RNA sequence: GGGGGAACAACAUCCUGGUGCUGCCCGGGUGUGUGCAGCAGAACUCCAGCAUCAGUGAUUUUGUUGCCUU
Numbered sequence: 001g002g003g004g005g006a007a008c009a010a011c012a013u014c015c016u017g018g019u020g021c022u023g024c025c026c027g028g029g030u031g032u033g034u035g036c037a038g039c040a041g042a043a044c045u046c047c048a049g050c051a052u053c054a055g056u057g058a059u060u061u062u063g064u065u066g067c068c069u070u
Stems, first nucleotide, its partner, number of pairs: 006065005012059003015055009

The record is a 70-nucleotide sequence from Gadus morhua, which matches "mir-338 microRNA precursor family" in Rfam. Gene Ontology terms of the family: RISC complex and miRNA-mediated post-transcriptional gene silencing. A reference for the family is Stark et al. (2010), "Characterization of the Melanoma miRNAome by Deep Sequencing", PLoS One.